[Rfam]
RNA sequence: AUGGUCCGCUCGAUGGACGCCCCAUACGGCGGGGGCCCUGUCCCGGCUAGGCUGGCCCGGUGCGCCCUCGACUGGGGGUGCAAAGCCGACAGCCGUCGCACUCCAGGGAGCUCUUCCAUG
Numbered sequence: 001a002u003g004g005u006c007c008g009c010u011c012g013a014u015g016g017a018c019g020c021c022c023c024a025u026a027c028g029g030c031g032g033g034g035g036c037c038c039u040g041u042c043c044c045g046g047c048u049a050g051g052c053u054g055g056c057c058c059g060g061u062g063c064g065c066c067c068u069c070g071a072c073u074g075g076g077g078g079u080g081c082a083a084a085g086c087c088g089a090c091a092g093c094c095g096u097c098g099c100a101c102u103c104c105a106g107g108g109a110g111c112u113c114u115u116c117c118a119u120g
Stems, first nucleotide, its partner, number of pairs: 061082004066077004085099002088097003
RNA: Streptomyces-metH RNA
Organism: Streptomyces sp. YIM 130001